A member of the RNA family "tRNA" from Desulfocurvibacter africanus, 84 nucleotides long.
NCBI's taxonomy places the organism under Bacteria, Pseudomonadati, Desulfovibrionaceae, Desulfocurvibacter africanus, Desulfocurvibacter africanus subsp. africanus.
About the family: Transfer RNA (tRNA) molecules are approximately 80 nucleotides in length.
It is annotated as a transfer RNA.
The match comes from Rfam's covariance-model search (57 bits).
RNA sequence: GCCGGGAUGGCGGAAUUGGUAGACGCAGCGGACUCAAAAUCCGCCGGUCGCAAGGCCAUGGGGGUUCAACUCCCCCUCCCGGUA
Numbered sequence: 001g002c003c004g005g006g007a008u009g010g011c012g013g014a015a016u017u018g019g020u021a022g023a024c025g026c027a028g029c030g031g032a033c034u035c036a037a038a039a040u041c042c043g044c045c046g047g048u049c050g051c052a053a054g055g056c057c058a059u060g061g062g063g064g065u066u067c068a069a070c071u072c073c074c075c076c077u078c079c080c081g082g083u084a
Stems, first nucleotide, its partner, number of pairs: 001083007010026003028044005060076005